[Rfam]
RNA sequence: GUGGCGGUGUAGUCCCAGCUCCCCUCGCCGUCCAGCAGGGCGUGCUCACCGAACCGGUCGCCGUCGGCGAGCACGGCUACGGCGACCUCGUCCCCGUACUUGCCGGCGGAGGUCUGGUUGACCCGGCCGUGGGCGAUCAGGUGGAUCCGCUCGGCGGGGGUGCCGCGCUCGACCAGCACCUCACCGGCACGGAAGUCACGCUGGACACACCGGCCGGCGAGCGCGGUCAGCACCUCCACGUCGUCGAAGCCGCGCAGCAUGGCGAGUUCGCCGAGCUCACGGGGGAUCACCCGGACGUUGGCACCGUCCUGGACGAAAUCGAUGCGCCCGUCGCCGACGGUGUAGGUCAGCCGGCGGUUCACCCGGUAGGUGCCGCCCUUGGUCUCCACCCAGGGGAGCAUUCUCAGCAGCCAGCGGGAGGUGAUCUCCUGCAUCUGAGGGGCGGACUUGGUCGUGGUGGCGAGGUUGCGGGCAGCCGCCGUUCCCAGGCUGGUCUGCUGGAGAGGCUCCAG
Numbered sequence: 001g002u003g004g005c006g007g008u009g010u011a012g013u014c015c016c017a018g019c020u021c022c023c024c025u026c027g028c029c030g031u032c033c034a035g036c037a038g039g040g041c042g043u044g045c046u047c048a049c050c051g052a053a054c055c056g057g058u059c060g061c062c063g064u065c066g067g068c069g070a071g072c073a074c075g076g077c078u079a080c081g082g083c084g085a086c087c088u089c090g091u092c093c094c095c096g097u098a099c100u101u102g103c104c105g106g107c108g109g110a111g112g113u114c115u116g117g118u119u120g121a122c123c124c125g126g127c128c129g130u131g132g133g134c135g136a137u138c139a140g141g142u143g144g145a146u147c148c149g150c151u152c153g154g155c156g157g158g159g160g161u162g163c164c165g166c167g168c169u170c171g172a173c174c175a176g177c178a179c180c181u182c183a184c185c186g187g188c189a190c191g192g193a194a195g196u197c198a199c200g201c202u203g204g205a206c207a208c209a210c211c212g213g214c215c216g217g218c219g220a221g222c223g224c225g226g227u228c229a230g231c232a233c234c235u236c237c238a239c240g241u242c243g244u245c246g247a248a249g250c251c252g253c254g255c256a257g258c259a260u261g262g263c264g265a266g267u268u269c270g271c272c273g274a275g276c277u278c279a280c281g282g283g284g285g286a287u288c289a290c291c292c293g294g295a296c297g298u299u300g301g302c303a304c305c306g307u308c309c310u311g312g313a314c315g316a317a318a319u320c321g322a323u324g325c326g327c328c329c330g331u332c333g334c335c336g337a338c339g340g341u342g343u344a345g346g347u348c349a350g351c352c353g354g355c356g357g358u359u360c361a362c363c364c365g366g367u368a369g370g371u372g373c374c375g376c377c378c379u380u381g382g383u384c385u386c387c388a389c390c391c392a393g394g395g396g397a398g399c400a401u402u403c404u405c406a407g408c409a410g411c412c413a414g415c416g417g418g419a420g421g422u423g424a425u426c427u428c429c430u431g432c433a434u435c436u437g438a439g440g441g442g443c444g445g446a447c448u449u450g451g452u453c454g455u456g457g458u459g460g461c462g463a464g465g466u467u468g469c470g471g472g473c474a475g476c477c478g479c480c481g482u483u484c485c486c487a488g489g490c491u492g493g494u495c496u497g498c499u500g501g502a503g504a505g506g507c508u509c510c511a512g
Stems, first nucleotide, its partner, number of pairs: 006390004011385002014382002018328001022324001025322003031316002036311007046303001049301004058229001060227005065111001068108001075103001077102001079100001082097003117222003122217002127212001129210002135206001137204004141199003147195001154188002157185002160182001161178002165174001235295003240290002243287003250282003254278001256277003262269001329342004353377005360372004391431007399423003403418003407415001437476001440473001443470002446467001447465003451461002478510001480506001482504001485501004
The record is a 512-nucleotide RNA from Streptomyces sp. ISL-86, which matches "Saccharopolyspora sRNA 350" in Rfam. The organism belongs to Streptomyces, within Bacteria. By type it is an antisense RNA. Rfam 15.1 lists 1,170 matches to the family in 705 species.